[Rfam]
RNA sequence: GUGAAGUGUUGAUGAAUCCAUUCUCAGAGUGCUGCUGCACUGCCCUCCCUGCAGCACGCAGAUUCCUGUUCUGGGGUCCCCGUGCUGUGCAGCCUCCAAAUACCCUACAGCCUUUCAGUGUUCUGCUGGGAGCCACUGAUGUGUCUGGCCAACUCUGCAGGAGAGGGGCAGAGCCAGCAGGGUGGGAGCCCCUCUUCAUGGGGCUCUGUCUCAACCAAGACAAGUGAUGCUGUCUGAUCAC
Numbered sequence: 001g002u003g004a005a006g007u008g009u010u011g012a013u014g015a016a017u018c019c020a021u022u023c024u025c026a027g028a029g030u031g032c033u034g035c036u037g038c039a040c041u042g043c044c045c046u047c048c049c050u051g052c053a054g055c056a057c058g059c060a061g062a063u064u065c066c067u068g069u070u071c072u073g074g075g076g077u078c079c080c081c082g083u084g085c086u087g088u089g090c091a092g093c094c095u096c097c098a099a100a101u102a103c104c105c106u107a108c109a110g111c112c113u114u115u116c117a118g119u120g121u122u123c124u125g126c127u128g129g130g131a132g133c134c135a136c137u138g139a140u141g142u143g144u145c146u147g148g149c150c151a152a153c154u155c156u157g158c159a160g161g162a163g164a165g166g167g168g169c170a171g172a173g174c175c176a177g178c179a180g181g182g183u184g185g186g187a188g189c190c191c192c193u194c195u196u197c198a199u200g201g202g203g204c205u206c207u208g209u210c211u212c213a214a215c216c217a218a219g220a221c222a223a224g225u226g227a228u229g230c231u232g233u234c235u236g237a238u239c240a241c
Stems, first nucleotide, its partner, number of pairs: 010240004019226004025219001029215002034178004038173001040171006046164002049161002051158002053086006061078002064076004089153001092150001094148002102142002110134001112132009180212003185207003189203004

A member of the RNA family "Small nucleolar RNA SNORD17" from Chelydra serpentina, 241 nucleotides long. From the family's description: The snoRNA HBI-43 belongs to the C/D family of snoRNAs, guiding 2'O-ribose methylation at position U3797 of the 28S rRNA. Pseudouridylation in position U3797 is predicted to be guided by the H/ACA snoRNA ACA48. A reference for the family is Huttenhofer et al. (2001), "RNomics: an experimental approach that identifies 201 candidates for novel, small, non-messenger RNAs in mouse", EMBO J. It scores 94 bits against the family's covariance model. The family has 19 seed sequences and 1,015 matches in Rfam 15.1.